[Rfam]
Rfam assigns this 39-nucleotide RNA sequence from Pseudochrobactrum saccharolyticum to the family "THF-II riboswitch (folE RNA)".

RNA sequence: CCGUUUAACUCGUCUCUCCACAGAGAGAGACUACGGGAG
Numbered sequence: 001c002c003g004u005u006u007a008a009c010u011c012g013u014c015u016c017u018c019c020a021c022a023g024a025g026a027g028a029g030a031c032u033a034c035g036g037g038a039g
Base pairs, nucleotide, nucleotide: 001036002035003034004033012031013030014029015028016027017026018025
About this RNA: A search with the family's covariance model found it, with a score of 60 bits. The family's consensus secondary structure is taken from published work. Gene Ontology term of the family: regulation of gene expression. The literature on the family includes a 2023 paper in Nucleic Acids Res by Xu et al., "Structural insights into translation regulation by the THF-II riboswitch".